[Rfam]
RNA sequence: CUCUUAUCUAGAGCGGUGGAGGGACUGGCCCUUUGAAACCGCGGCAACCUUCAUAAUUAAAUGAAAGGUGCCAAUUCCUGCAGAAAAUGAAAGAUGAGAG
Numbered sequence: 001c002u003c004u005u006a007u008c009u010a011g012a013g014c015g016g017u018g019g020a021g022g023g024a025c026u027g028g029c030c031c032u033u034u035g036a037a038a039c040c041g042c043g044g045c046a047a048c049c050u051u052c053a054u055a056a057u058u059a060a061a062u063g064a065a066a067g068g069u070g071c072c073a074a075u076u077c078c079u080g081c082a083g084a085a086a087a088u089g090a091a092a093g094a095u096g097a098g099a100g
Stems, first nucleotide, its partner, number of pairs: 001100008013042005021031003025080001027078002043072004048068002050064002076092001081089002
The family of this 100-nucleotide sequence from Oceanobacillus iheyensis is "SAM riboswitch aptamer (S box leader)". Pairs were carried over by alignment from the consensus structure, which is taken from published work. Its family is annotated with regulation of gene expression in the Gene Ontology. The sequence is in the family's curated seed alignment. The literature on the family includes a 1998 paper in Mol Microbiol by Grundy and Henkin, "The S box regulon: a new global transcription termination control system for methionine and cysteine biosynthesis genes in gram-positive bacteria".